The family of this 201-nucleotide sequence from Oryza sativa is "MIR812 microRNA precursor family". Taxonomically the source falls in Oryza sativa (Eukaryota, Tracheophyta, Petrosaviidae, Oryzoideae). The family has 22 seed sequences and 57,451 matches in Rfam 15.1. The match comes from Rfam's covariance-model search (85 bits).
[Rfam]
RNA sequence: AUAAAGCACGGUUUUACACUAUUUAUAUUCAAUAUUUAACUGCUCGUCUUAAAAAAUUGUGAUUAGUAUUUUUGUUAUUAUCAUAUGAUAAGAUAUGAACAUUAUUUUAUGUGUGACUAUUUUUUAAAAAAGAAAAUUAUAAAUUUUUAAAAUAAAACGAAUAUCAAACGUUGGACACGAAUAUUCAAGGCUGCACUUAUU
Numbered sequence: 001a002u003a004a005a006g007c008a009c010g011g012u013u014u015u016a017c018a019c020u021a022u023u024u025a026u027a028u029u030c031a032a033u034a035u036u037u038a039a040c041u042g043c044u045c046g047u048c049u050u051a052a053a054a055a056a057u058u059g060u061g062a063u064u065a066g067u068a069u070u071u072u073u074g075u076u077a078u079u080a081u082c083a084u085a086u087g088a089u090a091a092g093a094u095a096u097g098a099a100c101a102u103u104a105u106u107u108u109a110u111g112u113g114u115g116a117c118u119a120u121u122u123u124u125u126a127a128a129a130a131a132g133a134a135a136a137u138u139a140u141a142a143a144u145u146u147u148u149a150a151a152a153u154a155a156a157a158c159g160a161a162u163a164u165c166a167a168a169c170g171u172u173g174g175a176c177a178c179g180a181a182u183a184u185u186c187a188a189g190g191c192u193g194c195a196c197u198u199a200u201u
Stems, first nucleotide, its partner, number of pairs: 028175006035168003039164001041163002044160004049155003